[Rfam]
RNA sequence: AUAAAAGUUAUAGCGCCUGAGCCCAAGUGGCUGACGAGGAAUGAAGUUAUCGAAAUUAUCGGCGGAUGCUUCAUAGGUAUCACAACCUGAAUAUUUAAAAAGAAGUACGAGCAAUCUACUAACAAAUUAAAUAUAGUGAAUCCCU
Numbered sequence: 001a002u003a004a005a006a007g008u009u010a011u012a013g014c015g016c017c018u019g020a021g022c023c024c025a026a027g028u029g030g031c032u033g034a035c036g037a038g039g040a041a042u043g044a045a046g047u048u049a050u051c052g053a054a055a056u057u058a059u060c061g062g063c064g065g066a067u068g069c070u071u072c073a074u075a076g077g078u079a080u081c082a083c084a085a086c087c088u089g090a091a092u093a094u095u096u097a098a099a100a101a102g103a104a105g106u107a108c109g110a111g112c113a114a115u116c117u118a119c120u121a122a123c124a125a126a127u128u129a130a131a132u133a134u135a136g137u138g139a140a141u142c143c144c145u
Stems, first nucleotide, its partner, number of pairs: 020032004041074005050062004075088004092133005104120004109116002
glmS glucosamine-6-phosphate activated ribozyme aptamer: a 145-nucleotide RNA from Peptoniphilus lacrimalis. This entry contains a glucosamine-6-phosphate activated ribozyme that is found in the mRNA for GlmS. GlmS is an enzyme that uses fructose-6-phosphate and glutamine to generate glucosamine-6-phosphate. The ribozyme catalyses self cleavage of the glmS mRNA that is thought to regulate GlmS activity. It is annotated as a riboswitch. The family's consensus secondary structure is taken from published work.